[Rfam]
The record is a 102-nucleotide RNA sequence from Paenibacillus sp. FSL R5-0912, which matches "Purine riboswitch aptamer" in Rfam.
RNA sequence: AAACUGAACCUAUGAAGAGCUCGUAUAAAACCGGGGAUAAGGCCCGGAAGUUUCUACCCGGUAACCGUAAAUUGCCGGACUACGAGGAAAUAGGAUAACUGA
Numbered sequence: 001a002a003a004c005u006g007a008a009c010c011u012a013u014g015a016a017g018a019g020c021u022c023g024u025a026u027a028a029a030a031c032c033g034g035g036g037a038u039a040a041g042g043c044c045c046g047g048a049a050g051u052u053u054c055u056a057c058c059c060g061g062u063a064a065c066c067g068u069a070a071a072u073u074g075c076c077g078g079a080c081u082a083c084g085a086g087g088a089a090a091u092a093g094g095a096u097a098a099c100u101g102a
Stems, first nucleotide, its partner, number of pairs: 020086006031047005058078007

The source organism's lineage runs through Bacteria, Bacillati, Bacillota, Paenibacillaceae and Paenibacillus.